[Rfam]
Shown here is a 147-nucleotide RNA from Chthoniobacter flavus, a member of the family "c-di-AMP riboswitch aptamer (ydaO/yuaA leader)".
RNA sequence: AUCUUUACUUCGCUCAAUGGCCUGCUGUGCAGGCCACCGGGGGACCCACCCGCCCGCAAGGGCACGGGGCAAACGGCGCUGCGGCGCCGGGAACACUUGGUGAUUCCAGCCCGACAGCUAACCUCGGCAGCGUCACACCAAGGCAGG
Numbered sequence: 001a002u003c004u005u006u007a008c009u010u011c012g013c014u015c016a017a018u019g020g021c022c023u024g025c026u027g028u029g030c031a032g033g034c035c036a037c038c039g040g041g042g043g044a045c046c047c048a049c050c051c052g053c054c055c056g057c058a059a060g061g062g063c064a065c066g067g068g069g070c071a072a073a074c075g076g077c078g079c080u081g082c083g084g085c086g087c088c089g090g091g092a093a094c095a096c097u098u099g100g101u102g103a104u105u106c107c108a109g110c111c112c113g114a115c116a117g118c119u120a121a122c123c124u125c126g127g128c129a130g131c132g133u134c135a136c137a138c139c140a141a142g143g144c145a146g147g
Stems, first nucleotide, its partner, number of pairs: 011132004018036008037127006047066001067112003075088004090107004